[Rfam]
RNA sequence: AAAAGGGGCUUCUAUAGGGAGUGGCACACGUAGAGCAAUUCUGUUGCUCUUUGUGGGAAAUCAGCAUCAAGAGGUUUCAGAGGCAAAAUGUUUUGGUAUCGAGGCUGCUGGUGAUUGUUGGUCCCGGCACCCUU
Numbered sequence: 001a002a003a004a005g006g007g008g009c010u011u012c013u014a015u016a017g018g019g020a021g022u023g024g025c026a027c028a029c030g031u032a033g034a035g036c037a038a039u040u041c042u043g044u045u046g047c048u049c050u051u052u053g054u055g056g057g058a059a060a061u062c063a064g065c066a067u068c069a070a071g072a073g074g075u076u077u078c079a080g081a082g083g084c085a086a087a088a089u090g091u092u093u094u095g096g097u098a099u100c101g102a103g104g105c106u107g108c109u110g111g112u113g114a115u116u117g118u119u120g121g122u123c124c125c126g127g128c129a130c131c132c133u134u
Stems, first nucleotide, its partner, number of pairs: 008084005013026001015024001017022001027055004032050007057078006103131002107128005113123004
The record is a 134-nucleotide sequence from Otolemur garnettii, which matches "U11 spliceosomal RNA" in Rfam. The source organism's lineage runs through Eukaryota, Dipnotetrapodomorpha, Amniota, Primates and Otolemur. By type it is a spliceosomal small nuclear RNA. The family's consensus secondary structure is taken from published work. The literature on the family includes a 2008 paper in J Mol Evol by Marz et al., "Evolution of spliceosomal snRNA genes in metazoan animals". The match comes from Rfam's covariance-model search (82 bits).